This 162-nucleotide RNA sequence from Martelella sp. AD-3 belongs to the Rfam family "FMN riboswitch aptamer (RFN element)". Rfam links the family to the GO term FMN binding. Taxonomically the source falls in Martelella (Bacteria, Pseudomonadati, Pseudomonadota, Hyphomicrobiales). A search with the family's covariance model found it, with a score of 114 bits.
RNA sequence: CGACGUUCUCAGGGCGGGGUGAAAUUCCCCACCGGCGGUAAUUGCCUUUGUGCAUCAGCCCGCGAGCGCCUUGAUCGAAGGGAUUUCCCGGAAGAUCAAGGGUCAGCAGAUCCGGUGUGACUCCGGAGCCGACGGUUAGAGUCCGGAUGGAAGAGAACAGCG
Number, nucleotide and partner (000 for none) at each position: 001c000002g000003a000004c000005g158006u157007u156008c155009u154010c153011a000012g000013g000014g000015c000016g000017g029018g028019g027020u000021g000022a000023a000024a000025u000026u000027c019028c018029c017030c000031a142032c141033c131034g130035g063036c062037g061038g060039u000040a000041a000042u000043u000044g000045c000046c000047u000048u000049u000050g000051u000052g000053c000054a000055u000056c000057a000058g129059c128060c038061c037062g036063c035064g000065a000066g107067c106068g000069c000070c000071u000072u000073g000074a000075u000076c000077g000078a000079a000080g000081g000082g000083a000084u000085u000086u000087c000088c000089c000090g000091g000092a000093a000094g000095a000096u000097c000098a000099a000100g000101g000102g000103u000104c000105a000106g067107c066108a000109g000110a000111u127112c126113c125114g124115g123116u000117g000118u000119g000120a000121c000122u000123c115124c114125g113126g112127a111128g059129c058130c034131g033132a000133c145134g144135g143136u000137u000138a000139g000140a000141g032142u031143c135144c134145g133146g000147a000148u000149g000150g000151a000152a000153g010154a009155g008156a007157a006158c005159a000160g000161c000162g000